[Rfam]
RNA sequence: GGACGGAACUCUGGAGAGACCAUUUUGGCACCGAAGGGGCAAGGUAGUCCUGCUUGGAAAAGUAGAGCUACUGAAACUCUCAGGUAAAAGGACAGAGCGUUGAAA
Number, nucleotide and partner (000 for none) at each position: 001g000002g000003a000004c000005g000006g100007a000008a000009c097010u096011c095012u094013g093014g000015a000016g000017a000018g000019a000020c028021c027022a026023u000024u000025u000026u022027g021028g020029c000030a085031c084032c083033g081034a080035a000036g000037g079038g078039g077040c000041a000042a000043g072044g071045u070046a069047g068048u067049c000050c000051u000052g000053c000054u000055u000056g000057g000058a000059a000060a000061a000062g000063u000064a000065g000066a000067g048068c047069u046070a045071c044072u043073g000074a000075a000076a000077c039078u038079c037080u034081c033082a000083g032084g031085u030086a000087a000088a000089a000090g000091g000092a000093c013094a012095g011096a010097g009098c000099g000100u006101u000102g000103a000104a000105a000
RNA: Glycine riboswitch aptamer
Organism: Streptococcus suis